This 194-nucleotide RNA belongs to the Rfam family "Group II catalytic intron D1-D4-3".
[Rfam]
RNA sequence: UUUAUCGUGAGGUAUGCACUGAAGGAAGCAGAACUGCAAAAGUCUGUACCGACGAACAGAAAGUACAUAAGAGGCAUAACAAUAAGGAUGAGUAUCCACAGCAAUACGAAGUCCAAAACAGUGUUCUGAACAUGCUAUUUAAUCAGAUUAUUGUUCUGUAGAUGUACCGGCGAAUGACGGAAGGAAAAAGCAUU
Numbered sequence: 001u002u003u004a005u006c007g008u009g010a011g012g013u014a015u016g017c018a019c020u021g022a023a024g025g026a027a028g029c030a031g032a033a034c035u036g037c038a039a040a041a042g043u044c045u046g047u048a049c050c051g052a053c054g055a056a057c058a059g060a061a062a063g064u065a066c067a068u069a070a071g072a073g074g075c076a077u078a079a080c081a082a083u084a085a086g087g088a089u090g091a092g093u094a095u096c097c098a099c100a101g102c103a104a105u106a107c108g109a110a111g112u113c114c115a116a117a118a119c120a121g122u123g124u125u126c127u128g129a130a131c132a133u134g135c136u137a138u139u140u141a142a143u144c145a146g147a148u149u150a151u152u153g154u155u156c157u158g159u160a161g162a163u164g165u166a167c168c169g170g171c172g173a174a175u176g177a178c179g180g181a182a183g184g185a186a187a188a189a190g191c192a193u194u
Base pairs, nucleotide, nucleotide: 001016003014004013005012006011028194037184042178043177044176046175047172049170050169051168063167064166065165066164067163068162074159075158076157078155079154080153081152082151083150084149086114087113088112089111092107093106094105095104